[Rfam]
RNA sequence: GCUACUAAAUGGCUAACCUGGCGAAAGCCGGCGGCGCAAAACCAAGGGUCUAAAGUCCUGCAUAAUGGGAUCAUGACAGCCGGUUGCGAUU
Number, nucleotide and partner (000 for none) at each position: 001g000002c000003u000004a000005c000006u000007a000008a000009a000010u000011g000012g037013c036014u000015a000016a000017c000018c031019u030020g029021g028022c027023g000024a000025a000026a000027g022028c021029c020030g019031g018032c000033g000034g000035c000036g013037c012038a000039a000040a085041a084042c083043c082044a000045a000046g081047g080048g077049u076050c075051u000052a000053a000054a000055g071056u070057c069058c068059u067060g066061c000062a000063u000064a000065a000066u060067g059068g058069g057070a056071u055072c000073a000074u000075g050076a049077c048078a000079g000080c047081c046082g043083g042084u041085u040086g000087c000088g000089a000090u000091u000
About this RNA
The record is a 91-nucleotide RNA from Paenibacillus phyllosphaerae, which matches "c-di-GMP-I riboswitch aptamer" in Rfam. A search with the family's covariance model found it, with a score of 59 bits. GEMM was predicted in a large-scale screen for bacterial structured RNA regulatory elements. Gene Ontology term of the family: cyclic-di-GMP binding.